[Rfam]
RNA sequence: GGCAAUAUGCCAUCAGGUGGAUGGCUCGGCUCAAGCGCCGAGGAAGGACGUGCCAAGCUGCGAUAUGCCUGGGGUAGGUGCACGGAGCCAAUGAACCCAGGAUCUCCUAAUGGGACCUCCUGACGUAUGUCGAUCAGUAAUGAUCGGGAACGCUCCGAAUUGAAGCAUCUCAGUAGGAGCAGGAAAAGAAACCAAUCGAGAUACCGUUAGUAGACGGCGAGUGAAAACGGUAGAGUUCAAACCGAAUCCCUCCAGAAAUGGAAGGGAAAUGUGGUGUUAAAGGGCAGUAUCAAAGGUCCCGGUCAACUCGGGUCGAACUCUGCUGGAAAGCAGGACCAUAGAAUGUGACAGUCAUGUAGAUUCGGGUUGAGGGAUCUGGUGUUGUUCCUGAGUACCGUGGGUUGGAUAUCCCGCGGGAAUUUGGGAGGUAUCAACUUCCAAAACUAAAUACGUCUUGAGACCGAUAGUGUACUAGUAGGGUGACCGAAAGCUGAAAAGUACCCCAAAAAGGGAGGUGCAAAGUGCCUGAAACCUGAUGGUGACGGAGC
Dot-bracket structure: .......((((((((((.....(((..((((((((((.......(((((((........))).....((((((...(((.......)))......))))))...))))...(((....)))...........((((....))))......((((((.....((....))......))))).)..........(....)....(((((......((.....))....)))))..((((....(((......((((....)))).........)))...........((((......((((............(((...(.((((......)))))..(...).(((.......)))...)))..........))))....))))...........(((((((........)))))))......(((((.......)))))..)))).....)).)))))).))...............((....))....))..................................).....)))))))))).......